[Rfam]
RNA sequence: UUAUUGGACGUUUUAGCUAUUGAACUCUUUUGUCACUCUCUGACAGAGGCCAAUUUGUUCUUUGACGGAGGGUGACAAAACAGUUCAAUAGCUAAAACGUCCAAUCAC
Numbered sequence: 001u002u003a004u005u006g007g008a009c010g011u012u013u014u015a016g017c018u019a020u021u022g023a024a025c026u027c028u029u030u031u032g033u034c035a036c037u038c039u040c041u042g043a044c045a046g047a048g049g050c051c052a053a054u055u056u057g058u059u060c061u062u063u064g065a066c067g068g069a070g071g072g073u074g075a076c077a078a079a080a081c082a083g084u085u086c087a088a089u090a091g092c093u094a095a096a097a098c099g100u101c102c103a104a105u106c107a108c
Base pairs, nucleotide, nucleotide: 001107003105004104005103006102011097012096013095014094015093016092017091018090019089020088021087022086023085024084025083026082028080029069030068031067032066033065034064035063049059051057052056
Shown here is a 108-nucleotide RNA from Plutella xylostella, a member of the family "mir-8517 microRNA precursor family". The source organism's lineage runs through Eukaryota, Arthropoda, Pancrustacea, Amphiesmenoptera and Plutella.